[Rfam]
The record is a 90-nucleotide RNA sequence from Rhipicephalus microplus, which matches "mir-5316 microRNA precursor family" in Rfam.
Its family is annotated with RISC complex and miRNA-mediated post-transcriptional gene silencing in the Gene Ontology.

RNA sequence: GUACCACUUGCAGGCUCGCGAAAAUUGUUCUGGUUGGCAUUAAAGGAAUGAAUGUCACCGGGGCCUUUUCGUCUAGCUUUCCGUAGGUUU
Numbered sequence: 001g002u003a004c005c006a007c008u009u010g011c012a013g014g015c016u017c018g019c020g021a022a023a024a025u026u027g028u029u030c031u032g033g034u035u036g037g038c039a040u041u042a043a044a045g046g047a048a049u050g051a052a053u054g055u056c057a058c059c060g061g062g063g064c065c066u067u068u069u070c071g072u073c074u075a076g077c078u079u080u081c082c083g084u085a086g087g088u089u090u
Stems, first nucleotide, its partner, number of pairs: 003088003006084002012079005018073001019071006027064008036056004